[Rfam]
RNA: RAGATH-18 RNA
RNA sequence: CCUAUGAAGAGUACAAAAAAAUGUAAGUAGUGGUUGAAUUUAUUUGACACGAAAACAUACUCGUUGAAAUAGGAA
Numbered sequence: 001c002c003u004a005u006g007a008a009g010a011g012u013a014c015a016a017a018a019a020a021a022u023g024u025a026a027g028u029a030g031u032g033g034u035u036g037a038a039u040u041u042a043u044u045u046g047a048c049a050c051g052a053a054a055a056c057a058u059a060c061u062c063g064u065u066g067a068a069a070u071a072g073g074a075a
Stems, first nucleotide, its partner, number of pairs: 001073005009062005022057003030050003037045001